[Rfam]
RNA sequence: UCUCCCGCUUCUCCUCCCUGAGCGGGUGCCUUAAUCUCCAUUAAGGCCUUGGCCCCCGGUUUUACUCCCCUUUAGCCGGGGGCAUUUUUUAU
Numbered sequence: 001u002c003u004c005c006c007g008c009u010u011c012u013c014c015u016c017c018c019u020g021a022g023c024g025g026g027u028g029c030c031u032u033a034a035u036c037u038c039c040a041u042u043a044a045g046g047c048c049u050u051g052g053c054c055c056c057c058g059g060u061u062u063u064a065c066u067c068c069c070c071u072u073u074a075g076c077c078g079g080g081g082g083c084a085u086u087u088u089u090u091a092u
Stems, first nucleotide, its partner, number of pairs: 004026006028047007052083010
Shown here is a 92-nucleotide sequence from Pelomicrobium methylotrophicum, a member of the family "Burkholderia RNA 7 (anti-hemB)". It scores 72 bits against the family's covariance model. This RNA motif was identified by computational search in b-proteobacteria Burkholderia. The family has 26 seed sequences and 479 matches in Rfam 15.1. Rfam links the family to the GO terms protein binding and bacterial biofilm matrix.